The record is a 94-nucleotide RNA sequence from Sorghum bicolor, which matches "MIR5387 microRNA precursor family" in Rfam. The family's consensus secondary structure was predicted with RNAalifold. The match comes from Rfam's covariance-model search (88 bits). Taxonomically the source falls in Sorghum (Eukaryota, Embryophyta, Magnoliopsida, Panicoideae).
[Rfam]
RNA sequence: UGGUAACACAAACCGGUGCUAAAGGGUCCCUGCCCCGAUAGGACCUGUUAGUAGCCAUUGGGCAGGACCCUUUAGCACCGGUUCGUGUUACGAA
Numbered sequence: 001u002g003g004u005a006a007c008a009c010a011a012a013c014c015g016g017u018g019c020u021a022a023a024g025g026g027u028c029c030c031u032g033c034c035c036c037g038a039u040a041g042g043a044c045c046u047g048u049u050a051g052u053a054g055c056c057a058u059u060g061g062g063c064a065g066g067a068c069c070c071u072u073u074a075g076c077a078c079c080g081g082u083u084c085g086u087g088u089u090a091c092g093a094a
Stems, first nucleotide, its partner, number of pairs: 003091007011083017029066002034062003038058002045051002